Source information:
The record is a 68-nucleotide sequence from Erythrobacter sp. QSSC1-22B, which matches "terC RNA" in Rfam. It is annotated as a cis-regulatory element.
RNA sequence: GCGGCGAGCCGGGCCCCUCUGGCGGACGAUGUGUCGAAACGCAUCGACCGUGAUGUCGGAUCGCUCCC
Number, nucleotide and partner (000 for none) at each position: 001g000002c000003g000004g000005c000006g062007a061008g000009c059010c058011g057012g056013g000014c000015c000016c000017c000018u000019c000020u000021g000022g051023c050024g049025g048026a000027c046028g045029a044030u043031g042032u041033g040034u039035c000036g000037a000038a000039a034040c033041g032042c031043a030044u029045c028046g027047a000048c025049c024050g023051u022052g000053a000054u000055g000056u012057c011058g010059g009060a000061u007062c006063g000064c000065u000066c000067c000068c000